[Rfam]
RNA sequence: UGCCCGCGGCCGCUGAAUCCGCCGUCGAGGCGGAACCGGGGACCCAAUCUCGACCGGGGUGAAUCGGCACGUCCAUGUGCCGUAGGGCAGCUUCCGCACGCCCGAACCCGUCAGCUAACCCGGUAAGCGGCACGGAAGCAUAA
Dot-bracket structure: ..........((((...((((((.....))))))((((((....(..........)(((.....((((..........))))..((((...........))))...))).........)))))).))))..............
Rfam assigns this 143-nucleotide sequence from Nonomuraea wenchangensis to the family "c-di-AMP riboswitch aptamer (ydaO/yuaA leader)". NCBI's taxonomy places the organism under Bacteria, Bacillati, Actinomycetota, Streptosporangiaceae, Nonomuraea.